[Rfam]
RNA sequence: CCAAUGUGGAUACCCUGGGAGGUCACUCUCCCUGGGCUCUGCUCAAGUGAUGUAGGGGAGCAUAAGGCUCUACCCCAUGACAUACAGUCUCCUUUUACAUCACUGGAGAUGAAGCUGGGCUUUGUGUCUGCACCUACGUAUUCCUGCAACUCCUCAGAGUCCAUUAGACAGUGACUGAGAAGAUAAGCUAUGCAGGAAACAGUG
Numbered sequence: 001c002c003a004a005u006g007u008g009g010a011u012a013c014c015c016u017g018g019g020a021g022g023u024c025a026c027u028c029u030c031c032c033u034g035g036g037c038u039c040u041g042c043u044c045a046a047g048u049g050a051u052g053u054a055g056g057g058g059a060g061c062a063u064a065a066g067g068c069u070c071u072a073c074c075c076c077a078u079g080a081c082a083u084a085c086a087g088u089c090u091c092c093u094u095u096u097a098c099a100u101c102a103c104u105g106g107a108g109a110u111g112a113a114g115c116u117g118g119g120c121u122u123u124g125u126g127u128c129u130g131c132a133c134c135u136a137c138g139u140a141u142u143c144c145u146g147c148a149a150c151u152c153c154u155c156a157g158a159g160u161c162c163a164u165u166a167g168a169c170a171g172u173g174a175c176u177g178a179g180a181a182g183a184u185a186a187g188c189u190a191u192g193c194a195g196g197a198a199a200c201a202g203u204g
Stems, first nucleotide, its partner, number of pairs: 001106003005102002008044002011041002014036003018029004047098004056091004060085001062083002065078001133196003137192003150182002153179003159169003
Dot-bracket structure: (((.((.((.((.(((.((((....))))....)))...)).))..((((.....(((((.((.(............)...)).)..))))...))))..)).)))..........................(((.(((..........((.(((...(((.....))).......))).)).......))).)))........
This 204-nucleotide RNA from Heterocephalus glaber belongs to the Rfam family "Small nucleolar RNA SNORA73 family".
A reference for the family is Cervelli et al. (2002), "Comparative Structure Analysis of Vertebrate U17 Small Nucleolar RNA (snoRNA)", J Mol Evol.
Rfam 15.1 lists 2,326 matches to the family in 660 species.
From the family's description: U17 (SNORA73A and SNORA73B) also known as E1 belongs to the H/ACA class of small nucleolar RNAs (snoRNAs). Vertebrate U17 is intron-encoded and ranges in length from 200-230 nucleotides, longer than most snoRNAs. It is one of the most abundant snoRNAs in human cells and is essential for the cleavage of pre-rRNA within the 5' external transcribed spacer (ETS). This cleavage leads to the formation of 18S rRNA. Regions of the U17 RNA are complementary to rRNA and act as guides for RNA/RNA interactions, although these regions do not seem to be well conserved between organisms.
The family is grouped with related families in Rfam's "snR30-U17 clan".
Its family is annotated with nucleolus and RNA processing in the Gene Ontology.